[Rfam]
RNA sequence: AGCGCAUGGGAAGCGCCCGGACUCGGCGGCGGCCGAGUUGACGCGGAGGAGGUUGGCGAAAGAUUCGGCGGAUGCCUCCCGGCGCCAAUCCGAUCGCGCCGCAAGCGAAGCCUGAAAUCCACCGGGCGACCGGUGGGACAGAGGCGAGCAGAUCGGAUG
Number, nucleotide and partner (000 for none) at each position: 001a000002g000003c000004g000005c000006a000007u000008g000009g000010g000011a000012a000013g000014c000015g000016c000017c000018c000019g000020g039021a038022c037023u036024c035025g034026g033027c032028g000029g000030c000031g000032g027033c026034c025035g024036a023037g022038u021039u020040g000041a000042c000043g000044c000045g000046g000047a000048g079049g078050a077051g076052g075053u000054u000055g000056g000057c067058g066059a065060a000061a000062g000063a000064u000065u059066c058067g057068g000069c000070g000071g000072a000073u000074g000075c052076c051077u050078c049079c048080c101081g100082g099083c098084g097085c096086c000087a000088a000089u000090c000091c000092g000093a000094u000095c000096g085097c084098g083099c082100c081101g080102c000103a000104a000105g149106c148107g000108a000109a000110g145111c144112c000113u000114g000115a000116a000117a000118u000119c136120c135121a134122c133123c132124g131125g130126g000127c000128g000129a000130c125131c124132g123133g122134u121135g120136g119137g000138a000139c000140a000141g000142a000143g000144g111145c110146g000147a000148g106149c105150a000151g000152a000153u000154c000155g000156g000157a000158u000159g000
The family of this 159-nucleotide RNA sequence from Alicyclobacillus acidocaldarius is "glmS glucosamine-6-phosphate activated ribozyme aptamer". It scores 76 bits against the family's covariance model. Taxonomically the source falls in Alicyclobacillus acidocaldarius subsp. acidocaldarius (Bacteria, Bacillota, Caryophanales, Alicyclobacillus). About the family: This entry contains a glucosamine-6-phosphate activated ribozyme that is found in the mRNA for GlmS. GlmS is an enzyme that uses fructose-6-phosphate and glutamine to generate glucosamine-6-phosphate.